[Rfam]
RNA sequence: AUUUCGCAAUCGCUUAAUUCCCGAAAGGGAAACGGGGGAACCAAUAAAAACCAUGAAAGAAAUGUAUGGUUUUAUGGGGUGAAUCCACGGCUGUUACUCGCUCAUAUAGCCGAUGGUAGGGAACUCUCAAUCCCGAAUCCGACAGCUAACCACGUAAGCGAAUUGAGAGAACGG
Dot-bracket structure: ..........((((...(((........)))(((.((....((...............................))(((.....(((..........................)))..((((........))))...))).........)).))).))))..............
Record summary
This 174-nucleotide RNA sequence from Paenibacillus sp. GP183 belongs to the Rfam family "c-di-AMP riboswitch aptamer (ydaO/yuaA leader)". The source organism's lineage runs through Bacteria, Bacilli, Caryophanales, Paenibacillaceae and Paenibacillus.